[Rfam]
RNA sequence: GUGAGUGUGGUGAUGAUACUAUUGUGGACUAGAGUUUCUGAUUGGGCUCUUCACCCUAAUUUGAUGACAAACCCUUGGCUGUCCGAGCACUAUU
Number, nucleotide and partner (000 for none) at each position: 001g094002u000003g000004a091005g090006u089007g088008u087009g000010g000011u000012g000013a000014u000015g000016a000017u000018a000019c000020u000021a000022u000023u000024g000025u000026g000027g000028a000029c000030u000031a000032g000033a000034g000035u066036u000037u064038c063039u000040g000041a000042u059043u058044g057045g056046g055047c000048u000049c000050u000051u000052c000053a000054c000055c046056c045057u044058a043059a042060u000061u000062u000063g038064a037065u000066g035067a000068c000069a000070a000071a000072c000073c000074c000075u000076u000077g000078g000079c000080u000081g000082u000083c000084c000085g000086a000087g008088c007089a006090c005091u004092a000093u000094u001

A member of the RNA family "Small nucleolar RNA Z157/R69/R10" from Papaver somniferum, 94 nucleotides long. It is annotated as a C/D-box small nucleolar RNA. The match comes from Rfam's covariance-model search (72 bits). The base pairs follow the family's consensus structure, which was predicted with PFOLD. NCBI's taxonomy places the organism under Eukaryota, Viridiplantae, Spermatophyta, Ranunculales, Papaver. Clan: SNORD52 clan. Gene Ontology terms of the family: RNA processing and nucleolus.